[Rfam]
RNA sequence: CAAACGGCUCUUUUCAGAGCCCCCAACUUUUCGUAUAAAGGGCUG
Numbered sequence: 001c002a003a004a005c006g007g008c009u010c011u012u013u014u015c016a017g018a019g020c021c022c023c024c025a026a027c028u029u030u031u032c033g034u035a036u037a038a039a040g041g042g043c044u045g
Stems, first nucleotide, its partner, number of pairs: 006021006
About this RNA
The family of this 45-nucleotide sequence from Callipepla squamata is "Histone 3' UTR stem-loop". The family has 50 seed sequences and 44,596 matches in Rfam 15.1. It scores 36 bits against the family's covariance model. Rfam describes the family as follows. The mRNAs of metazoan histone genes lack a poly-A tail. 3' end processing occurs at a site between a highly conserved stem-loop (modelled by this family) and a purine rich region around 20 nts downstream (the histone downstream element, or HDE). By type it is a cis-regulatory element.